[Rfam]
A member of the RNA family "RT-3 RNA", 145 nucleotides long. The sequence is in the family's curated seed alignment.
RNA sequence: AAUCGGUUCACGGCAAUGUGAUACGUGUAUCAUGCAGCCGGACCGAAGGGGAUGAGCCACGGCAAAAGCACAUGAAGUGGAAAGCCGAAACAUCAAGUGGCGGGUAGAGAUUGGUAGGCGGCAACGCUCGAAGAUCUUAGGCCCG
Numbered sequence: 001a002a003u004c005g006g007u008u009c010a011c012g013g014c015a016a017u018g019u020g021a022u023a024c025g026u027g028u029a030u031c032a033u034g035c036a037g038c039c040g041g042a043c044c045g046a047a048g049g050g051g052a053u054g055a056g057c058c059a060c061g062g063c064a065a066a067a068g069c070a071c072a073u074g075a076a077g078u079g080g081a082a083a084g085c086c087g088a089a090a091c092a093u094c095a096a097g098u099g100g101c102g103g104g105u106a107g108a109g110a111u112u113g114g115u116a117g118g119c120g121g122c123a124a125c126g127c128u129c130g131a132a133g134a135u136c137u138u139a140g141g142c143c144c145g
Base pairs, nucleotide, nucleotide: 003046004045005044006043007042008041011040012039013038014037018033019032020031021030022029048058049057060087061086062085063084069079070078071077101145102144103143104142105141107138108137109136110135111134112133117128118127119126120125